The record is a 92-nucleotide RNA sequence from Malonomonas rubra, which matches "Selenocysteine transfer RNA" in Rfam. Taxonomically the source falls in Malonomonas rubra (Bacteria, Desulfuromonadales, Geopsychrobacteraceae, Malonomonas). The match comes from Rfam's covariance-model search (70 bits). On this family, see Lowe and Eddy, Nucleic Acids Res 1997: "tRNAscan-SE: a program for improved detection of transfer RNA genes in genomic sequence".
[Rfam]
RNA sequence: GGAGGCAGCUAGCGUUCUGGUGAUGCUCACGGUCUUCAAAACCGAUGUGGGGAGUAUCCCUUCCCGGGUGGGUUCGAUUCCCAUCUGCCUCC
Number, nucleotide and partner (000 for none) at each position: 001g092002g091003a090004g089005g088006c087007a086008g085009c000010u000011a027012g026013c025014g024015u023016u000017c022018u000019g000020g000021u000022g017023a015024u014025g013026c012027u011028c000029a000030c044031g043032g042033u041034c000035u000036u000037c000038a000039a000040a000041a033042c032043c031044g030045a000046u000047g000048u066049g065050g064051g063052g062053a000054g000055u000056a000057u000058c000059c000060c000061u000062u052063c051064c050065c049066g048067g000068g000069u083070g082071g081072g080073u000074u000075c000076g000077a000078u000079u000080c072081c071082c070083a069084u000085c008086u007087g006088c005089c004090u003091c002092c001